[Rfam]
RNA sequence: UUGCCUGAUGCAAUCAGUGUUCUACUCUCCUAUUAAAGAACAUGACUAUAUCCAUAGCAUGCUAUAUGUGAUCAAUGAGAAGGUUUUUUUAGGGUUGCUGACUUUUUGGUUGAGGUUAUGUGGACAUAUAUUUCUUCUACGUUA
Numbered sequence: 001u002u003g004c005c006u007g008a009u010g011c012a013a014u015c016a017g018u019g020u021u022c023u024a025c026u027c028u029c030c031u032a033u034u035a036a037a038g039a040a041c042a043u044g045a046c047u048a049u050a051u052c053c054a055u056a057g058c059a060u061g062c063u064a065u066a067u068g069u070g071a072u073c074a075a076u077g078a079g080a081a082g083g084u085u086u087u088u089u090u091a092g093g094g095u096u097g098c099u100g101a102c103u104u105u106u107u108g109g110u111u112g113a114g115g116u117u118a119u120g121u122g123g124a125c126a127u128a129u130a131u132u133u134c135u136u137c138u139a140c141g142u143u144a
Base pairs, nucleotide, nucleotide: 003062004061006059007058017043018042019041020040021039022038023037079137080136081135082134095123098120099118100117101116102115103114104113105112